[Rfam]
RNA sequence: AUUCCGGAAACAAUGAUGUGAUUUCCAAGCACAUAUCUGAUGAUUCCAUGUGGAAUUUUAACUACUGAGUUUCCUGGGC
Numbered sequence: 001a002u003u004c005c006g007g008a009a010a011c012a013a014u015g016a017u018g019u020g021a022u023u024u025c026c027a028a029g030c031a032c033a034u035a036u037c038u039g040a041u042g043a044u045u046c047c048a049u050g051u052g053g054a055a056u057u058u059u060a061a062c063u064a065c066u067g068a069g070u071u072u073c074c075u076g077g078g079c
Stems, first nucleotide, its partner, number of pairs: 002078003006074001008072004
RNA: Small nucleolar RNA SNORD121A